[Rfam]
RNA sequence: UCUUCAUUCCACGCGUUCUCUCGCCGGUCAGAGAGACGAGAGAGUGUGUGAAAUGAAGAGA
Numbered sequence: 001u002c003u004u005c006a007u008u009c010c011a012c013g014c015g016u017u018c019u020c021u022c023g024c025c026g027g028u029c030a031g032a033g034a035g036a037c038g039a040g041a042g043a044g045u046g047u048g049u050g051a052a053a054u055g056a057a058g059a060g061a
Stems, first nucleotide, its partner, number of pairs: 001059007010050001012048006019041004
A member of the RNA family "mir-8364 microRNA precursor family" from Pristionchus pacificus, 61 nucleotides long. A search with the family's covariance model found it, with a score of 80 bits. Lineage of the source: Eukaryota > Metazoa > Eumetazoa > Bilateria > Pristionchus.